Shown here is a 120-nucleotide sequence from Zizania palustris, a member of the family "Small nucleolar RNA Z107/R87". On this family, see Barneche et al., J Mol Biol 2001: "Identification of 66 box C/D snoRNAs in Arabidopsis thaliana: extensive gene duplications generated multiple isoforms predicting new ribosomal RNA 2'-O-methylation sites". Rfam classes the family as a C/D-box small nucleolar RNA. NCBI's taxonomy places the organism under Eukaryota, Spermatophyta, Oryzeae, Zizaniinae, Zizania. Pairs were carried over by alignment from the consensus structure, which was predicted with RNAfold.

RNA sequence: GAUGGCAUUGACGACUUGGUAAAUAUUCAAGCUCAACAGACCAAAUCACAUGUCUUCCUCUCUGGAUCUAUUCCUCCGAGACUGAUCUGUAUGCCGAUUAUCCCGCUGAACCGAGCCAUC
Numbered sequence: 001g002a003u004g005g006c007a008u009u010g011a012c013g014a015c016u017u018g019g020u021a022a023a024u025a026u027u028c029a030a031g032c033u034c035a036a037c038a039g040a041c042c043a044a045a046u047c048a049c050a051u052g053u054c055u056u057c058c059u060c061u062c063u064g065g066a067u068c069u070a071u072u073c074c075u076c077c078g079a080g081a082c083u084g085a086u087c088u089g090u091a092u093g094c095c096g097a098u099u100a101u102c103c104c105g106c107u108g109a110a111c112c113g114a115g116c117c118a119u120c
Stems, first nucleotide, its partner, number of pairs: 001120006